[Rfam]
RNA sequence: GGAUAGCCCCAGGUAACUGGGGAAAGGUCGGGGCGGCUUGACGGCUCCGGCCCCCAAGUUGGAUCACAAGUCCAGCGUGGGCAUGUCUCACCGGAUCCCGCGGCCGGGGUCGCACCCGGAAAGCAUCGGGCGAGUUGAAAAGCCGAAAGGCGCAACGAGGUCGGUGUCCGUAGAAUGCGAAUAAGGGGUUCGAGAGGUUGGCGGCGAUAACUAAAGAAACCGCACGCUAGCCCAGUCACGUUGGAAGGCAGUUUCGGCCUUUUUGGCGAACACAGACGCUCCAAGAAAAGGGCGCUGGUUGCUGCUGUGAGAAACGUCAGGUGUUCAUGGUCAGCCUGAGUAUGGGAGUGUGAAAAAGCUCCUGGCUCCAAGGUUCCCCCUGAUGCGGGGGGAAAGCGAAAGGGGUUGGCAGGUGGAUAGGCGGGGUCGGGGGGUCGGGCCGGCGGGCUUGGCCGAUAGAAAACCCGGCUCCGGGUUUGGGAGGCGUACCCGGGAGGGGCGUCGCCCAACUACGAGGAAAAAGCAACCUGAGAGGUAAGAAGCUAGACCCGUGGCGGGGGGCCAACGCGGUGCCAAAAGCACCGGCUGUCCUCCCGAUCAUAGGCGGUGAUUCACAAAGAAACCUGUCACAGGGUAAUUCUCGUGGGUGAGUCAACGCCGUGUUUGGCGCGCCCGUGCCGGCAGGUACGGACCGAACCAAGCAAAGAGGCUUCACUCAAUAAACUGCGAUCAGGGAUGGUCGUGGCGGCCCUGCUAUGAGGCCGGAACUUCUCCCCCGCCGUGACGCGGGGGCGGUGAAUAGCGUCGGGGAACUGGCAGCCGAAUGAAGAAGUAGGAUCGGUCGAAAGGCAGGUCCAGGCGCCAAAUAGCCAGUCGAUGGGGAAGAGAGCGUGGCGAACUCC
Numbered sequence: 001g002g003a004u005a006g007c008c009c010c011a012g013g014u015a016a017c018u019g020g021g022g023a024a025a026g027g028u029c030g031g032g033g034c035g036g037c038u039u040g041a042c043g044g045c046u047c048c049g050g051c052c053c054c055c056a057a058g059u060u061g062g063a064u065c066a067c068a069a070g071u072c073c074a075g076c077g078u079g080g081g082c083a084u085g086u087c088u089c090a091c092c093g094g095a096u097c098c099c100g101c102g103g104c105c106g107g108g109g110u111c112g113c114a115c116c117c118g119g120a121a122a123g124c125a126u127c128g129g130g131c132g133a134g135u136u137g138a139a140a141a142g143c144c145g146a147a148a149g150g151c152g153c154a155a156c157g158a159g160g161u162c163g164g165u166g167u168c169c170g171u172a173g174a175a176u177g178c179g180a181a182u183a184a185g186g187g188g189u190u191c192g193a194g195a196g197g198u199u200g201g202c203g204g205c206g207a208u209a210a211c212u213a214a215a216g217a218a219a220c221c222g223c224a225c226g227c228u229a230g231c232c233c234a235g236u237c238a239c240g241u242u243g244g245a246a247g248g249c250a251g252u253u254u255c256g257g258c259c260u261u262u263u264u265g266g267c268g269a270a271c272a273c274a275g276a277c278g279c280u281c282c283a284a285g286a287a288a289a290g291g292g293c294g295c296u297g298g299u300u301g302c303u304g305c306u307g308u309g310a311g312a313a314a315c316g317u318c319a320g321g322u323g324u325u326c327a328u329g330g331u332c333a334g335c336c337u338g339a340g341u342a343u344g345g346g347a348g349u350g351u352g353a354a355a356a357a358g359c360u361c362c363u364g365g366c367u368c369c370a371a372g373g374u375u376c377c378c379c380c381u382g383a384u385g386c387g388g389g390g391g392g393a394a395a396g397c398g399a400a401a402g403g404g405g406u407u408g409g410c411a412g413g414u415g416g417a418u419a420g421g422c423g424g425g426g427u428c429g430g431g432g433g434g435u436c437g438g439g440c441c442g443g444c445g446g447g448c449u450u451g452g453c454c455g456a457u458a459g460a461a462a463a464c465c466c467g468g469c470u471c472c473g474g475g476u477u478u479g480g481g482a483g484g485c486g487u488a489c490c491c492g493g494g495a496g497g498g499g500c501g502u503c504g505c506c507c508a509a510c511u512a513c514g515a516g517g518a519a520a521a522a523g524c525a526a527c528c529u530g531a532g533a534g535g536u537a538a539g540a541a542g543c544u545a546g547a548c549c550c551g552u553g554g555c556g557g558g559g560g561g562c563c564a565a566c567g568c569g570g571u572g573c574c575a576a577a578a579g580c581a582c583c584g585g586c587u588g589u590c591c592u593c594c595c596g597a598u599c600a601u602a603g604g605c606g607g608u609g610a611u612u613c614a615c616a617a618a619g620a621a622a623c624c625u626g627u628c629a630c631a632g633g634g635u636a637a638u639u640c641u642c643g644u645g646g647g648u649g650a651g652u653c654a655a656c657g658c659c660g661u662g663u664u665u666g667g668c669g670c671g672c673c674c675g676u677g678c679c680g681g682c683a684g685g686u687a688c689g690g691a692c693c694g695a696a697c698c699a700a701g702c703a704a705a706g707a708g709g710c711u712u713c714a715c716u717c718a719a720u721a722a723a724c725u726g727c728g729a730u731c732a733g734g735g736a737u738g739g740u741c742g743u744g745g746c747g748g749c750c751c752u753g754c755u756a757u758g759a760g761g762c763c764g765g766a767a768c769u770u771c772u773c774c775c776c777c778g779c780c781g782u783g784a785c786g787c788g789g790g791g792g793c794g795g796u797g798a799a800u801a802g803c804g805u806c807g808g809g810g811a812a813c814u815g816g817c818a819g820c821c822g823a824a825u826g827a828a829g830a831a832g833u834a835g836g837a838u839c840g841g842u843c844g845a846a847a848g849g850c851a852g853g854u855c856c857a858g859g860c861g862c863c864a865a866a867u868a869g870c871c872a873g874u875c876g877a878u879g880g881g882g883a884a885g886a887g888a889g890c891g892u893g894g895c896g897a898a899c900u901c902c
Stems, first nucleotide, its partner, number of pairs: 008021005026052009036042001058076006092192008104119005110180005196232003201227002204223002216255005240267002243263006271309005277294004297528006338368004343364007374395002377392005422473006433454009489498003532717003539713004555596007568584006605657002608654007662702006670694002673690007724745009746764005753803004770795002773792007812874006818867001819860002835856005887901003
Background
The record is a 902-nucleotide RNA, which matches "MISL RNA" in Rfam.